[Rfam]
Overview:
mir-7 microRNA precursor family: a 90-nucleotide sequence from Erpetoichthys calabaricus. Rfam links the family to the GO terms RISC complex and miRNA-mediated post-transcriptional gene silencing. On this family, see Lagos-Quintana et al., Science 2001: "Identification of novel genes coding for small expressed RNAs". About the family: This family represents the microRNA (miRNA) precursor mir-7. The source organism's lineage runs through Eukaryota, Metazoa, Deuterostomia, Gnathostomata and Erpetoichthys.
RNA sequence: AUAUCCAGAUCUGUUUGGAAGACUAGUGAUUUUGUUGUCUUUAUGGAAAGGAUUGGCAACAAGUCCUUGUCUUCCUCACAGCUAUGUGAU
Numbered sequence: 001a002u003a004u005c006c007a008g009a010u011c012u013g014u015u016u017g018g019a020a021g022a023c024u025a026g027u028g029a030u031u032u033u034g035u036u037g038u039c040u041u042u043a044u045g046g047a048a049a050g051g052a053u054u055g056g057c058a059a060c061a062a063g064u065c066c067u068u069g070u071c072u073u074c075c076u077c078a079c080a081g082c083u084a085u086g087u088g089a090u
Base pairs, nucleotide, nucleotide: 002089005086009083011081012080013079014078017075018074020072021071022070023069026067028065029064030063031062032061034060035059036058037057038056039055